Annotation
The record is a 98-nucleotide RNA from Erysipelotrichaceae bacterium MTC7, which matches "azaaromatic riboswitch aptamer (yjdF RNA)" in Rfam.
RNA sequence: AGCAACAAAGAUAGAAACACGACCCGGCUGGUAGUCCGGGUGCAGCAAUAUCUGUCAGUAACCUGCCUCCUUGGCUGUCCAAUCUUUGUGUUGAAAAA
Numbered sequence: 001a002g003c004a005a006c007a008a009a010g011a012u013a014g015a016a017a018c019a020c021g022a023c024c025c026g027g028c029u030g031g032u033a034g035u036c037c038g039g040g041u042g043c044a045g046c047a048a049u050a051u052c053u054g055u056c057a058g059u060a061a062c063c064u065g066c067c068u069c070c071u072u073g074g075c076u077g078u079c080c081a082a083u084c085u086u087u088g089u090g091u092u093g094a095a096a097a098a
Stems, first nucleotide, its partner, number of pairs: 005089007022041006042055004065075003
About this RNA
A search with the family's covariance model found it, with a score of 79 bits.